Shown here is an 86-nucleotide RNA from Capillibacterium thermochitinicola, a member of the family "c-di-GMP-I-GGC riboswitch aptamer". NCBI's taxonomy places the organism under Bacteria, Bacillati, Bacillota, Capillibacterium. The base pairs follow the family's consensus structure, which is taken from published work. On this family, see Weinberg et al., Proc Natl Acad Sci U S A 2017: "Bioinformatic analysis of riboswitch structures uncovers variant classes with altered ligand specificity".
[Rfam]
RNA sequence: UACGAUAAAGGCAAACCCGUCGAAAGACGGGGGCGCAAAGCCACGGGUCUAAAGUGGUAACCACUAUGAUCGCCGGGCCGCCGAAA
Numbered sequence: 001u002a003c004g005a006u007a008a009a010g011g012c013a014a015a016c017c018c019g020u021c022g023a024a025a026g027a028c029g030g031g032g033g034c035g036c037a038a039a040g041c042c043a044c045g046g047g048u049c050u051a052a053a054g055u056g057g058u059a060a061c062c063a064c065u066a067u068g069a070u071c072g073c074c075g076g077g078c079c080g081c082c083g084a085a086a
Stems, first nucleotide, its partner, number of pairs: 001086001003083002011036002016031006034072001040078003044075003047070003